[Rfam]
RNA sequence: AGGAGUUUUUCCUCAAUGACACGUUUUCUCCCGGGUUGAUCCAGGAAGUAAACGCAACCGGGAUUUCCGUGUCAGCCAGGAAUGACUCCA
Numbered sequence: 001a002g003g004a005g006u007u008u009u010u011c012c013u014c015a016a017u018g019a020c021a022c023g024u025u026u027u028c029u030c031c032c033g034g035g036u037u038g039a040u041c042c043a044g045g046a047a048g049u050a051a052a053c054g055c056a057a058c059c060g061g062g063a064u065u066u067c068c069g070u071g072u073c074a075g076c077c078a079g080g081a082a083u084g085a086c087u088c089c090a
Stems, first nucleotide, its partner, number of pairs: 002089006009082003017074007029063006036057003041054001044053001
Notes: The record is a 90-nucleotide sequence from Takifugu flavidus, which matches "mir-731 microRNA precursor family" in Rfam. The family's consensus secondary structure was predicted with RNAalifold. A search with the family's covariance model found it, with a score of 70 bits. Gene Ontology terms of the family: RISC complex and miRNA-mediated post-transcriptional gene silencing. The organism belongs to Takifugu, within Eukaryota.